This 81-nucleotide RNA sequence from Esox lucius belongs to the Rfam family "mir-459 microRNA precursor family". NCBI's taxonomy places the organism under Eukaryota, Teleostomi, Neopterygii, Osteoglossocephalai, Esox.
RNA sequence: CCUUCUGCCAUCAGUAACAAGGAUUCAUCCUGUUGUCAUAUUCUAAACCAGCAGGGAAUCUCUGUUACUGGAGGUGUGGGU
Numbered sequence: 001c002c003u004u005c006u007g008c009c010a011u012c013a014g015u016a017a018c019a020a021g022g023a024u025u026c027a028u029c030c031u032g033u034u035g036u037c038a039u040a041u042u043c044u045a046a047a048c049c050a051g052c053a054g055g056g057a058a059u060c061u062c063u064g065u066u067a068c069u070g071g072a073g074g075u076g077u078g079g080g081u
Stems, first nucleotide, its partner, number of pairs: 011071009021061006029055007039046001
Rfam links the family to the GO terms miRNA-mediated post-transcriptional gene silencing and RISC complex. It scores 85 bits against the family's covariance model.